RNA sequence: UAAUCCUUGCUACCUGGGUGAGAGUGCUAUCUGAAUGCAGUGCACCCAGGCAAGGAUUCUG
Numbered sequence: 001u002a003a004u005c006c007u008u009g010c011u012a013c014c015u016g017g018g019u020g021a022g023a024g025u026g027c028u029a030u031c032u033g034a035a036u037g038c039a040g041u042g043c044a045c046c047c048a049g050g051c052a053a054g055g056a057u058u059c060u061g
Base pairs, nucleotide, nucleotide: 002058003057004056005055006054007053008052013050014049015048016047017046018045019044020043025039026038027037

The record is a 61-nucleotide sequence from Macaca mulatta, which matches "mir-500 microRNA precursor family" in Rfam. On this family, see Linsen et al., BMC Genomics 2010: "Small RNA expression and strain specificity in the rat". Its family is annotated with RISC complex and miRNA-mediated post-transcriptional gene silencing in the Gene Ontology. Lineage of the source: Eukaryota > Metazoa > Euarchontoglires > Catarrhini > Macaca. The family has 38 seed sequences and 402 matches in Rfam 15.1.